A member of the RNA family "Group II catalytic intron D1-D4-2", 118 nucleotides long. Rfam links the family to the GO term Group II intron splicing. Rfam's curators write: Group II introns are found in rRNA, tRNA and mRNA of organelles in fungi, plants and protists, and also in mRNA in bacteria.
[Rfam]
RNA sequence: GACGGAGGGCCCGUCGGAGCCGAUCAUUAGGGAUAGGCUUCAAACCAGCCCAAGCGGCUGUCAUUAAGAGUGAUGGUCGUGAGCGUUGGGAAAAGGCAGGACAGCGAUCCUGUCAUGG
Dot-bracket structure: (((((.....)))))((((((.(((......))).))))))...((..(((((((.(((.((((.....)))).))).)).....)))))....((((((........))))))..))

The family has 144 seed sequences and 1,231 matches in Rfam 15.1.